[Rfam]
Rfam assigns this 124-nucleotide RNA sequence from Lottia gigantea to the family "U11 spliceosomal RNA". It is annotated as a spliceosomal small nuclear RNA.

RNA sequence: UAAAAGGGCCUUUGCUGUCAGUAGCACACAGUUCCAAUCGGGCUGUGCGGAAUCGCAAUCAAGAGAUUUCGGAGGCAUAAUUUUUAUCCCUGGUGGCAGUUAGACUUCACAGUCUGACGCCCGG
Numbered sequence: 001u002a003a004a005a006g007g008g009c010c011u012u013u014g015c016u017g018u019c020a021g022u023a024g025c026a027c028a029c030a031g032u033u034c035c036a037a038u039c040g041g042g043c044u045g046u047g048c049g050g051a052a053u054c055g056c057a058a059u060c061a062a063g064a065g066a067u068u069u070c071g072g073a074g075g076c077a078u079a080a081u082u083u084u085u086a087u088c089c090c091u092g093g094u095g096g097c098a099g100u101u102a103g104a105c106u107u108c109a110c111a112g113u114c115u116g117a118c119g120c121c122c123g124g
Base pairs, nucleotide, nucleotide: 008076009075010074011073012072013026014025015024016023017022027047028046029045030044031043032042033041034040048071049070050069051068052067053066054065095121096120097119099118100117101116102115103114104113105112106111